[Rfam]
RNA: Alphaproteobacterial ar14
RNA sequence: CAGUUCUUGCCAGGUUUUCCUCCUCCCAGCCUGGCAGAUAUGGCCCUCCUCUUCCUCCUCCCAGUGAAGGGCCACUAAAACGACACCCGCCGGUCCUCCUCCCCCGGCGGGUGUUGUUG
Numbered sequence: 001c002a003g004u005u006c007u008u009g010c011c012a013g014g015u016u017u018u019c020c021u022c023c024u025c026c027c028a029g030c031c032u033g034g035c036a037g038a039u040a041u042g043g044c045c046c047u048c049c050u051c052u053u054c055c056u057c058c059u060c061c062c063a064g065u066g067a068a069g070g071g072c073c074a075c076u077a078a079a080a081c082g083a084c085a086c087c088c089g090c091c092g093g094u095c096c097u098c099c100u101c102c103c104c105c106g107g108c109g110g111g112u113g114u115u116g117u118u119g
Stems, first nucleotide, its partner, number of pairs: 006037002009035007042073006049066001051064001083114011